[Rfam]
RNA sequence: AUACUUACCUGGCAGGGGAGAUACCAUGAUCACAAAGGUGGUUUUCCCAGGGCGAGGCUUAUCCAUUGCACUUCAGAUGUGCUGACCCUUGCGAUUUCCCCAAAUGUGGGAAACUCAACUACAUAGUUUGUGGUGGGGGAGGACUGCGUUCGUGAUCUCCCC
Numbered sequence: 001a002u003a004c005u006u007a008c009c010u011g012g013c014a015g016g017g018g019a020g021a022u023a024c025c026a027u028g029a030u031c032a033c034a035a036a037g038g039u040g041g042u043u044u045u046c047c048c049a050g051g052g053c054g055a056g057g058c059u060u061a062u063c064c065a066u067u068g069c070a071c072u073u074c075a076g077a078u079g080u081g082c083u084g085a086c087c088c089u090u091g092c093g094a095u096u097u098c099c100c101c102a103a104a105u106g107u108g109g110g111a112a113a114c115u116c117a118a119c120u121a122c123a124u125a126g127u128u129u130g131u132g133g134u135g136g137g138g139g140a141g142g143a144c145u146g147c148g149u150u151c152g153u154g155a156u157c158u159c160c161c162c
Stems, first nucleotide, its partner, number of pairs: 012122001014120002016048006023042005049090004054086001056083003060079004093116002095113003099109002137161005143156001145154003